[Rfam]
Nucleotides: 106
Stems, first nucleotide, its partner, number of pairs: 001105004043059003047055001
Number, partner (000 for none) and nucleotide at each position: 001105u002104g003103c004102c005000u006000g007000u008000g009000a010000u011000g012000a013000c014000u015000u016000g017000c018000c019000a020000u021000g022000c023000u024000a025000a026000u027000a028000c029000u030000g031000a032000c033000a034000c035000c036000u037000c038000c039000c040000u041000g042000g043059c044058a045057g046000u047055g048000c049000a050000u051000g052000u053000g054000g055047c056000u057045c058044u059043g060000c061000c062000c063000c064000g065000g066000g067000a068000a069000g070000g071000a072000a073000u074000g075000a076000g077000u078000u079000a080000a081000a082000c083000a084000c085000u086000u087000c088000u089000u090000a091000u092000g093000g094000a095000g096000a097000c098000c099000u100000g101000a102004g103003g104002u105001g106000c
The family of this 106-nucleotide RNA from Chelydra serpentina is "Small nucleolar RNA U6-53/MBII-28".
The pairing is the family consensus, mapped onto this sequence.
Rfam 15.1 lists 780 matches to the family in 403 species.
The match comes from Rfam's covariance-model search (63 bits).
NCBI's taxonomy places the organism under Eukaryota, Bilateria, Archelosauria, Cryptodira, Chelydra.